[Rfam]
RNA sequence: GGCAGAGUAGGCAGCCAAGCGUAAAGUGUCCCGCGGACGGGGAGUUGCCGCGGGAACGAAAAGCGAAUAGCUUGCGGUUUGGCUGCCGCAUCCCGCUGUU
Numbered sequence: 001g002g003c004a005g006a007g008u009a010g011g012c013a014g015c016c017a018a019g020c021g022u023a024a025a026g027u028g029u030c031c032c033g034c035g036g037a038c039g040g041g042g043a044g045u046u047g048c049c050g051c052g053g054g055a056a057c058g059a060a061a062a063g064c065g066a067a068u069a070g071c072u073u074g075c076g077g078u079u080u081g082g083c084u085g086c087c088g089c090a091u092c093c094c095g096c097u098g099u100u
Stems, first nucleotide, its partner, number of pairs: 001100005010087010020076003026057002029055008040093003044089001061073004
RNA: THF (Tetrahydrofolate) riboswitch aptamer